[Rfam]
RNA sequence: GUUGUCACAAUAGUAAUUCAACGUAGUACGAGAGGAACUGUUGAUUCACAUAAUUGGUUUUUGCGGUUAGCUGAUCAGCUAGUGCCGCGACGCUACCAUGUGUAGGAUUACGGCUGAACGCCUCUAAGUCGGAAUCCAUGCUAAAAGUGAUGAUGUGUCUCUGGAUUGUUGAUGAAAAUAGAUGCAAAUCGUGUAUUGUUUUGGUGUUGAGAUGAAAGGGAUGAAAUCCGUUUUAUUUGCGCCUAAUAACAAGUUUGGAAUUCAGAGUGGAAAUAAAGAGAAGACGACUUUUAAUCACCCGGGUAUUGUAAGCAGUAGAGUAGCCUUGUUGUUACGAUCUGGUGAGAUUAAGCCUUGGGUUUUUUGAUUUUU
Numbered sequence: 001g002u003u004g005u006c007a008c009a010a011u012a013g014u015a016a017u018u019c020a021a022c023g024u025a026g027u028a029c030g031a032g033a034g035g036a037a038c039u040g041u042u043g044a045u046u047c048a049c050a051u052a053a054u055u056g057g058u059u060u061u062u063g064c065g066g067u068u069a070g071c072u073g074a075u076c077a078g079c080u081a082g083u084g085c086c087g088c089g090a091c092g093c094u095a096c097c098a099u100g101u102g103u104a105g106g107a108u109u110a111c112g113g114c115u116g117a118a119c120g121c122c123u124c125u126a127a128g129u130c131g132g133a134a135u136c137c138a139u140g141c142u143a144a145a146a147g148u149g150a151u152g153a154u155g156u157g158u159c160u161c162u163g164g165a166u167u168g169u170u171g172a173u174g175a176a177a178a179u180a181g182a183u184g185c186a187a188a189u190c191g192u193g194u195a196u197u198g199u200u201u202u203g204g205u206g207u208u209g210a211g212a213u214g215a216a217a218g219g220g221a222u223g224a225a226a227u228c229c230g231u232u233u234u235a236u237u238u239g240c241g242c243c244u245a246a247u248a249a250c251a252a253g254u255u256u257g258g259a260a261u262u263c264a265g266a267g268u269g270g271a272a273a274u275a276a277a278g279a280g281a282a283g284a285c286g287a288c289u290u291u292u293a294a295u296c297a298c299c300c301g302g303g304u305a306u307u308g309u310a311a312g313c314a315g316u317a318g319a320g321u322a323g324c325c326u327u328g329u330u331g332u333u334a335c336g337a338u339c340u341g342g343u344g345a346g347a348u349u350a351a352g353c354c355u356u357g358g359g360u361u362u363u364u365u366g367a368u369u370u371u372u
Stems, first nucleotide, its partner, number of pairs: 001154008011143004016046001018044006047102005055095003062089005067082006105137002111131005159267007271370004276292005297360004301355003305348002313341003317338001320335005
The record is a 372-nucleotide part of an RNA from Batrachochytrium dendrobatidis, which matches "Eukaryotic large subunit ribosomal RNA" in Rfam. The organism belongs to Batrachochytrium dendrobatidis, within Eukaryota. Rfam links the family to the GO terms structural constituent of ribosome and ribosome. The base pairs follow the family's consensus structure, which is taken from published work.